Notes:
The family of this 90-nucleotide RNA from Parascaris univalens is "Small nucleolar RNA sn2903". For this family Rfam cites "Evolution of small nucleolar RNAs in nematodes" (Zemann et al., Nucleic Acids Res, 2006). The base pairs follow the family's consensus structure, which was predicted with WAR. Clan: SNORD60 clan. The family's RNA type in Rfam is C/D-box small nucleolar RNA. A search with the family's covariance model found it, with a score of 50 bits.

[Rfam]
RNA sequence: GAGCAGUGAUGAAUGCAUGUUUGCACUGACACCUCUUAUGGUAGUACUCAGUGCUGUGAGUGCGAUAAUUCAAGCAGUUUUUACGAGCUC
Numbered sequence: 001g002a003g004c005a006g007u008g009a010u011g012a013a014u015g016c017a018u019g020u021u022u023g024c025a026c027u028g029a030c031a032c033c034u035c036u037u038a039u040g041g042u043a044g045u046a047c048u049c050a051g052u053g054c055u056g057u058g059a060g061u062g063c064g065a066u067a068a069u070u071c072a073a074g075c076a077g078u079u080u081u082u083a084c085g086a087g088c089u090c
Stems, first nucleotide, its partner, number of pairs: 001090004